RNA sequence: UGCUAGAGUAUCGGUGGUGGUCUGGUAAGCGCGUUGCCUAUGAGAUCACGCCUAUAUUCGCUUUA
Numbered sequence: 001u002g003c004u005a006g007a008g009u010a011u012c013g014g015u016g017g018u019g020g021u022c023u024g025g026u027a028a029g030c031g032c033g034u035u036g037c038c039u040a041u042g043a044g045a046u047c048a049c050g051c052c053u054a055u056a057u058u059c060g061c062u063u064u065a
Stems, first nucleotide, its partner, number of pairs: 006059006013052004018048006025041003029037002
The record is a 65-nucleotide RNA sequence from Angiostrongylus costaricensis, which matches "mir-5885 microRNA precursor family" in Rfam. Taxonomically the source falls in Angiostrongylus (Eukaryota, Bilateria, Rhabditida, Rhabditomorpha). Its family is annotated with RISC complex and miRNA-mediated post-transcriptional gene silencing in the Gene Ontology. The family has 3 seed sequences and 36 matches in Rfam 15.1.